Background:
The record is a 130-nucleotide sequence from Castor canadensis, which matches "Small nucleolar RNA SNORA51" in Rfam. The source organism's lineage runs through Eukaryota, Gnathostomata, Sarcopterygii, Castoridae and Castor. ACA51 is a member of the H/ACA class of snoRNA that guide the sites of modification of uridines to pseudouridines.
RNA sequence: GGCCUCUUGGUGUUUACCACAGACUGUUCUUACACUGACUGUAUUCAGAGAGGAGGCAAAGUAAACCUCCCCCAUAUAUACCUCAGCCCAGGCCCUGUGUCUAGUCUGUAUUGUGAAUGGGGAGACGUGG
Dot-bracket structure: .(((((((...........(((...((....)).....))).........)))))))............((((((........(((.(.((((.....)))).).)))........))))))........